RNA sequence: AGCACAGAUGAUGACUAUAAGGGAUUUAAUACUGAAGCGUGAUGUCACUUUUGAGCAGAAACUGAUGUGC
Numbered sequence: 001a002g003c004a005c006a007g008a009u010g011a012u013g014a015c016u017a018u019a020a021g022g023g024a025u026u027u028a029a030u031a032c033u034g035a036a037g038c039g040u041g042a043u044g045u046c047a048c049u050u051u052u053g054a055g056c057a058g059a060a061a062c063u064g065a066u067g068u069g070c
Base pairs, nucleotide, nucleotide: 002070003069004068005067006066
Shown here is a 70-nucleotide RNA sequence from Tyto alba, a member of the family "Small nucleolar RNA SNORD82". snoRNA U82 or Z25 is found in both humans and mice. A reference for the family is Galardi et al. (2002), "Purified box C/D snoRNPs are able to reproduce site-specific 2'-O-methylation of target RNA in vitro", Mol Cell Biol. The family's consensus secondary structure was predicted with PFOLD. Rfam classes the family as a C/D-box small nucleolar RNA. Rfam 15.1 lists 649 matches to the family in 590 species. A search with the family's covariance model found it, with a score of 60 bits.